Notes
The family of this 81-nucleotide sequence is "Small nucleolar RNA U54". U54 is a C/D box small nucleolar RNA, which acts as a methylation guide for 18S ribosomal RNA in plants. The base pairs follow the family's consensus structure, which was predicted with PFOLD.
RNA sequence: AGCUCUGUGAUUUCAACCAAUCACAUUGGUUUUAUACGCUAUUCUGAUUGGAGCUGUUGAAAAAUAAGACUUAUGAGAGCU
Numbered sequence: 001a002g003c004u005c006u007g008u009g010a011u012u013u014c015a016a017c018c019a020a021u022c023a024c025a026u027u028g029g030u031u032u033u034a035u036a037c038g039c040u041a042u043u044c045u046g047a048u049u050g051g052a053g054c055u056g057u058u059g060a061a062a063a064a065u066a067a068g069a070c071u072u073a074u075g076a077g078a079g080c081u
Base pairs, nucleotide, nucleotide: 001081002080003079004078005077